The record is an 86-nucleotide RNA from Ipomoea nil, which matches "Small nucleolar RNA snoR14" in Rfam. A reference for the family is Brown et al. (2001), "Multiple snoRNA gene clusters from Arabidopsis", RNA. It is annotated as a C/D-box small nucleolar RNA.
RNA sequence: GUGAGGGGAUGAUAGAAUUCAUUAGUCUGUCAAUCCACUGACAAAUUUUGUGAUGUCAAAUGUGAAUCCCGACAGGUUCUGAUCAC
Numbered sequence: 001g002u003g004a005g006g007g008g009a010u011g012a013u014a015g016a017a018u019u020c021a022u023u024a025g026u027c028u029g030u031c032a033a034u035c036c037a038c039u040g041a042c043a044a045a046u047u048u049u050g051u052g053a054u055g056u057c058a059a060a061u062g063u064g065a066a067u068c069c070c071g072a073c074a075g076g077u078u079c080u081g082a083u084c085a086c
Stems, first nucleotide, its partner, number of pairs: 001086004